Small nucleolar RNA snoR26: a 90-nucleotide sequence from Colocasia esculenta. The match comes from Rfam's covariance-model search (58 bits). It is annotated as a C/D-box small nucleolar RNA. Pairs were carried over by alignment from the consensus structure, which was predicted with WAR. Lineage of the source: Eukaryota > Liliopsida > Alismatales > Colocasieae > Colocasia.
[Rfam]
RNA sequence: ACAGCAUCUAUGGUGUGCCUGUCAUUGUUAUCCUUGCACUAUGAUUUUCAAAUGAAGAAAUCUGAUGGGGAAAAAUGGUCUGAGAUGGUG
Number, nucleotide and partner (000 for none) at each position: 001a000002c090003a089004g000005c087006a086007u085008c084009u000010a000011u000012g000013g000014u000015g000016u000017g000018c000019c000020u000021g000022u000023c000024a000025u000026u000027g000028u000029u000030a000031u000032c000033c000034u000035u000036g000037c000038a000039c000040u000041a000042u000043g000044a000045u000046u000047u000048u000049c000050a000051a000052a000053u000054g000055a000056a000057g000058a000059a000060a000061u000062c000063u000064g000065a000066u000067g000068g000069g000070g000071a000072a000073a000074a000075a000076u000077g000078g000079u000080c000081u000082g000083a000084g008085a007086u006087g005088g000089u003090g002